[Rfam]
RNA sequence: AGGUAUUUGAGUAUAUGGGGAUGAAUGUCAGACAUUCAAUGUUAAGCGCGAGAGAAAAACAAAAGGGGGAAAAAAAUCCCCCUUUUUAGGUAACG
Numbered sequence: 001a002g003g004u005a006u007u008u009g010a011g012u013a014u015a016u017g018g019g020g021a022u023g024a025a026u027g028u029c030a031g032a033c034a035u036u037c038a039a040u041g042u043u044a045a046g047c048g049c050g051a052g053a054g055a056a057a058a059a060c061a062a063a064a065g066g067g068g069g070a071a072a073a074a075a076a077u078c079c080c081c082c083u084u085u086u087u088a089g090g091u092a093a094c095g
Stems, first nucleotide, its partner, number of pairs: 008038001010036003016032001019029002061086010